[Rfam]
RNA sequence: AGUUUUUGUUGGCGUAAAUCUAAUUACUUAAAUUUUAGAUGAUAAUAAAUUCUCCAUUGGUAAGAAAUGGUUAUCCGCUAAGUGGAGGAAAUCUUAU
Numbered sequence: 001a002g003u004u005u006u007u008g009u010u011g012g013c014g015u016a017a018a019u020c021u022a023a024u025u026a027c028u029u030a031a032a033u034u035u036u037a038g039a040u041g042a043u044a045a046u047a048a049a050u051u052c053u054c055c056a057u058u059g060g061u062a063a064g065a066a067a068u069g070g071u072u073a074u075c076c077g078c079u080a081a082g083u084g085g086a087g088g089a090a091a092u093c094u095u096a097u
Stems, first nucleotide, its partner, number of pairs: 009023004052087004057077001059075005
A member of the RNA family "Plastid-rps12 3UTR RNA" from Capsicum annuum, 97 nucleotides long. It scores 88 bits against the family's covariance model. Rfam classes the family as a cis-regulatory element. Plastid rpl20 is a non-coding RNA (ncRNA) recognised in plastids. It was found in the three prime untranslated region (3UTR) of rps12 gene, its 3UTR location sugest a role in transcript maduration. The family's consensus secondary structure was predicted with LocARNA.